RNA sequence: ACGCGGCCCUAGCUCUGGCAAUGGUGUUAACCAGAGUGAAAGGACUAGAGGUUAGAGGAGACCCCGCGUUCUGA
Numbered sequence: 001a002c003g004c005g006g007c008c009c010u011a012g013c014u015c016u017g018g019c020a021a022u023g024g025u026g027u028u029a030a031c032c033a034g035a036g037u038g039a040a041a042g043g044a045c046u047a048g049a050g051g052u053u054a055g056a057g058g059a060g061a062c063c064c065c066g067c068g069u070u071c072u073g074a
Base pairs, nucleotide, nucleotide: 002068003067004066005065006064007043008042012037013036014035015034016033017032018031050063051062052061053060
Flavivirus DB element: a 74-nucleotide RNA from Orthoflavivirus nilense.
Rfam classes the family as a cis-regulatory element.
Rfam describes the family as follows. This family represents the flavivirus 3' UTR elements DB1 and DB2. These DB elements are thought to be required for efficient translation.